[Rfam]
Purine riboswitch aptamer: a 100-nucleotide RNA from Acetoanaerobium sticklandii.
Its family is annotated with purine nucleobase biosynthetic process in the Gene Ontology.
Taxonomically the source falls in Acetoanaerobium sticklandii (Bacteria, Bacillati, Clostridia, Peptostreptococcales).
A search with the family's covariance model found it, with a score of 83 bits.

RNA sequence: ACAUUUCAAAUGUUUUUCCCUCAUAUAAUACCGGUAAUAUGGACCGGAAGUCUCUACCGAAAACCGUAAAUUUUCGACUAUGAGUGGAUCGCUGUGUAUA
Number, nucleotide and partner (000 for none) at each position: 001a000002c000003a000004u000005u000006u000007c000008a000009a000010a000011u000012g000013u000014u000015u000016u000017u000018c086019c000020c084021u083022c082023a081024u080025a079026u000027a000028a000029u049030a000031c047032c046033g045034g044035u043036a000037a000038u000039a000040u000041g000042g000043a035044c034045c033046g032047g031048a000049a029050g000051u000052c000053u000054c000055u000056a000057c000058c076059g075060a074061a073062a072063a071064c000065c000066g000067u000068a000069a000070a000071u063072u062073u061074u060075c059076g058077a000078c000079u025080a024081u023082g022083a021084g020085u000086g018087g000088a000089u000090c000091g000092c000093u000094g000095u000096g000097u000098a000099u000100a000